[Rfam]
Nucleotides: 134
Stems, first nucleotide, its partner, number of pairs: 002056006010048002014042003018037006062133002065127005072121002079116002082113005088107002
Number, partner (000 for none) and nucleotide at each position: 001000g002056g003055c004054a005053a006052a007051u008000g009000c010048a011047c012000u013000c014042u015041g016040u017000g018037u019036c020035a021034c022033a023032u024000u025000g026000a027000a028000u029000u030000g031000a032023a033022u034021g035020u036019g037018a038000a039000g040016a041015c042014a043000a044000u045000u046000u047011g048010u049000u050000a051007g052006u053005u054004u055003g056002c057000a058000a059000u060000a061000u062133u063132a064000a065127a066126g067125a068124g069123u070000u071000g072121c073120g074000u075000a076000u077000u078000a079116u080115c081000c082113a083112u084111g085110u086109a087000u088107u089106u090000a091000a092000a093000g094000c095000c096000g097000u098000a099000u100000c101000a102000g103000g104000g105000u106089g107088a108000u109086u110085a111084c112083a113082u114000u115080g116079a117000a118000a119000u120073c121072g122000c123069a124068u125067u126066u127065u128000a129000c130000a131000c132063u133062a134000u